[Rfam]
RNA sequence: AUUCCAGAGGUGGCAUGGCAACAUGUCACUCCGGCAGCAAGCGAAGGUGUCAUUGACACCCGUGGUAUAGUCCCCCCGGCUAUACCACGAUAUUUUUUU
Numbered sequence: 001a002u003u004c005c006a007g008a009g010g011u012g013g014c015a016u017g018g019c020a021a022c023a024u025g026u027c028a029c030u031c032c033g034g035c036a037g038c039a040a041g042c043g044a045a046g047g048u049g050u051c052a053u054u055g056a057c058a059c060c061c062g063u064g065g066u067a068u069a070g071u072c073c074c075c076c077c078g079g080c081u082a083u084a085c086c087a088c089g090a091u092a093u094u095u096u097u098u099u
Stems, first nucleotide, its partner, number of pairs: 009030009034042002046060006061089012
Dot-bracket structure: ........(((((((((....)))))))))...((.....))...((((((...))))))((((((((((((.....))))))))))))..........